[Rfam]
RNA sequence: GGCAGCCCCUCGUGUGGCGUUAUCCUGCGAACUCCCCCAGGACCGGAAGGUAGCAAGGGUAAGUAGGCUCUAGCGGGUACACGAGGGGUCCUCCAG
Dot-bracket structure: ....(((((((((((..(((((.(((((.....(((.....(((....))).....)))...)))))...))))).)..)))))))))).......
Source information
Rfam assigns this 96-nucleotide sequence from Psychromicrobium silvestre to the family "Bacterial small signal recognition particle RNA". On this family, see Rosenblad et al., Nucleic Acids Res 2003: "SRPDB: Signal Recognition Particle Database". The family's consensus secondary structure is taken from published work. It is annotated as a non-coding RNA gene. Rfam links the family to the GO terms signal recognition particle, plasma membrane targeting and SRP-dependent cotranslational protein targeting to membrane, signal sequence recognition.